A member of the RNA family "Xanthomonas sRNA sX9" from Iodobacter ciconiae, 93 nucleotides long. Taxonomically the source falls in Iodobacter (Bacteria, Pseudomonadota, Betaproteobacteria, Neisseriales). The match comes from Rfam's covariance-model search (44 bits). The literature on the family includes a 2011 paper in Nucleic Acids Res by Schmidtke et al., "Genome-wide transcriptome analysis of the plant pathogen Xanthomonas identifies sRNAs with putative virulence functions".
RNA sequence: AUGUAUAAACCAUACAUUCCGGUUCCUGUGCUCCGGCCGCCACGCUCUGACGAGCGCUCGUUACUUUUACGUUUGAGCAUGCUAUUAACAGCC
Numbered sequence: 001a002u003g004u005a006u007a008a009a010c011c012a013u014a015c016a017u018u019c020c021g022g023u024u025c026c027u028g029u030g031c032u033c034c035g036g037c038c039g040c041c042a043c044g045c046u047c048u049g050a051c052g053a054g055c056g057c058u059c060g061u062u063a064c065u066u067u068u069a070c071g072u073u074u075g076a077g078c079a080u081g082c083u084a085u086u087a088a089c090a091g092c093c
Stems, first nucleotide, its partner, number of pairs: 002016005020035003025030001047091003052086002